Shown here is a 131-nucleotide RNA sequence from Temnothorax curvispinosus, a member of the family "Small nucleolar RNA SNORA79". From the family's description: ACA65 (SNORA79) is a member of the H/ACA class of snoRNAs that guide the sites of modification of uridines to pseudouridines. This snoRNA was identified by computational screening and its expression in mouse experimentally verified by Northern blot and primer extension analysis. It is annotated as an H/ACA-box small nucleolar RNA. A reference for the family is Schattner et al. (2006), "A computational screen for mammalian pseudouridylation guide H/ACA RNAs", RNA. Gene Ontology terms of the family: RNA processing and nucleolus. NCBI's taxonomy places the organism under Eukaryota, Metazoa, Mandibulata, Dicondylia, Temnothorax.
Nucleotides: 131
Stems, first nucleotide, its partner, number of pairs: 001055006008048001014042005021035003068123005080110005085104001087102003
Number, partner (000 for none) and nucleotide at each position: 001055a002054g003053a004052c005051a006050u007000c008048u009000g010000u011000u012000c013000c014042u015041u016040u017039g018038a019000c020000a021035a022034a023033g024000c025000u026000u027000c028000u029000u030000a031000u032000g033023u034022u035021u036000c037000g038018u039017c040016a041015g042014a043000u044000u045000u046000c047000a048008g049000a050006a051005u052004g053003u054002c055001u056000u057000a058000a059000a060000a061000c062000a063000a064000a065000u066000c067000u068123g069122g070121a071120u072119u073000a074000c075000u076000u077000c078000a079000c080110c081109c082108g083107g084106a085104a086000c087102u088101g089100u090000a091000u092000u093000u094000u095000c096000a097000a098000u099000u100089a101088c102087a103000u104085u105000g106084u107083c108082u109081g110080g111000c112000u113000u114000u115000u116000g117000c118000g119072g120071a121070u122069u123068c124000a125000u126000a127000c128000a129000a130000u131000c